[Rfam]
RNA sequence: UGGGGCGGGAACCUGGCAUACAAUGUAGAUUACUGUGUUUGUUGAGCAGCAGGUACAUUGUCUGCCGGGUUUCCAGCUGCCUGG
Numbered sequence: 001u002g003g004g005g006c007g008g009g010a011a012c013c014u015g016g017c018a019u020a021c022a023a024u025g026u027a028g029a030u031u032a033c034u035g036u037g038u039u040u041g042u043u044g045a046g047c048a049g050c051a052g053g054u055a056c057a058u059u060g061u062c063u064g065c066c067g068g069g070u071u072u073c074c075a076g077c078u079g080c081c082u083g084g
Stems, first nucleotide, its partner, number of pairs: 013068006020061008033052004
mir-221 microRNA precursor family: an 84-nucleotide RNA sequence from Alca torda. The family's consensus secondary structure was predicted with RNAalifold. A search with the family's covariance model found it, with a score of 67 bits.